[Rfam]
RNA sequence: CAUCUUUAUUUCCGUCGGAACUUCCCUAUAUUCAGAUGUGCUGGCGCAAGCCGGCUAUGGCGAUAAACGGACAUCGAAAUAAACCAUUCGGACCCGGGGGCGGUACCCGGCGCCUCCACCAAAAUGAGCCUGUGGGCUCAUUCUGAUGGGGGCGAAAUAGGAUCGACGAGGGUGUAAAGGGUGCUCUUUUGCUCGGCAUGGUACCGCCGUUAUCGGACCAAACCUGUAGUUGCAAACGACAACUAUGCUCCGGUUGCUCAGGCCGCGUAAUGCGGUUUGAAAUACCGACUCAAAGCCCUGUGGGUUAGCACCUUCAGGCGGGGUUCGGAGGCACCUGGCAACAGAAGCCUCCACU
Number, nucleotide and partner (000 for none) at each position: 001c000002a000003u000004c000005u000006u000007u000008a000009u000010u000011u000012c000013c000014g000015u000016c000017g000018g000019a000020a000021c000022u000023u000024c000025c000026c000027u000028a000029u000030a000031u000032u000033c000034a000035g000036a000037u000038g000039u000040g055041c054042u053043g052044g051045c000046g000047c000048a000049a000050g000051c044052c043053g042054g041055c040056u000057a000058u000059g193060g192061c191062g190063a189064u000065a000066a000067a000068c000069g186070g185071a000072c183073a182074u181075c180076g000077a000078a000079a000080u000081a000082a000083a000084c172085c171086a000087u000088u169089c168090g167091g000092a000093c000094c110095c109096g108097g107098g106099g000100g000101c000102g000103g000104u000105a000106c098107c097108c096109g095110g094111c154112g153113c152114c151115u150116c149117c148118a000119c000120c000121a000122a000123a000124a000125u000126g000127a000128g000129c000130c000131u000132g000133u000134g000135g000136g000137c000138u000139c000140a000141u000142u000143c000144u000145g000146a000147u000148g117149g116150g115151g114152g113153c112154g111155a000156a000157a000158u000159a000160g000161g000162a000163u000164c000165g000166a000167c090168g089169a088170g000171g085172g084173u000174g000175u000176a000177a000178a000179g000180g075181g074182u073183g072184c000185u070186c069187u000188u000189u063190u062191g061192c060193u059194c209195g208196g207197c206198a000199u220200g219201g218202u000203a000204c216205c215206g197207c196208c195209g194210u000211u000212a000213u000214c000215g205216g204217a000218c201219c200220a199221a000222a000223c000224c000225u000226g000227u000228a000229g000230u000231u000232g000233c000234a000235a000236a000237c000238g000239a000240c000241a000242a000243c000244u000245a000246u000247g000248c000249u000250c000251c000252g000253g000254u000255u000256g000257c000258u000259c000260a000261g000262g000263c000264c000265g000266c000267g000268u000269a000270a000271u000272g000273c000274g000275g000276u000277u000278u000279g000280a000281a000282a000283u000284a000285c000286c000287g000288a000289c000290u000291c000292a000293a000294a000295g000296c000297c000298c000299u000300g000301u000302g000303g000304g000305u000306u000307a000308g000309c000310a000311c000312c000313u000314u000315c000316a000317g000318g000319c000320g000321g336322g335323g334324u333325u000326c000327g352328g351329a350330g349331g348332c347333a324334c323335c322336u321337g000338g000339c000340a000341a000342c000343a000344g000345a000346a000347g332348c331349c330350u329351c328352c327353a000354c000355u000
RNA: Alphaproteobacteria transfer-messenger RNA
Organism: Agaricicola taiwanensis